A member of the RNA family "mir-129 microRNA precursor family" from Rhinopomastus cyanomelas, 68 nucleotides long. For this family Rfam cites "Identification of tissue-specific microRNAs from mouse" (Lagos-Quintana et al., Curr Biol, 2002). The match comes from Rfam's covariance-model search (68 bits). The source organism's lineage runs through Eukaryota, Neognathae, Neoaves, Coraciimorphae and Rhinopomastus.

[Rfam]
RNA sequence: UCGGGGCUUUUUGCGGUCUGGGCUUGCUGUGACCCCCCCCCGGAAGCCCUUACCCCAAAAAGGAUCCG
Numbered sequence: 001u002c003g004g005g006g007c008u009u010u011u012u013g014c015g016g017u018c019u020g021g022g023c024u025u026g027c028u029g030u031g032a033c034c035c036c037c038c039c040c041c042g043g044a045a046g047c048c049c050u051u052a053c054c055c056c057a058a059a060a061a062g063g064a065u066c067c068g
Stems, first nucleotide, its partner, number of pairs: 007062007015054003020049004025044001027042001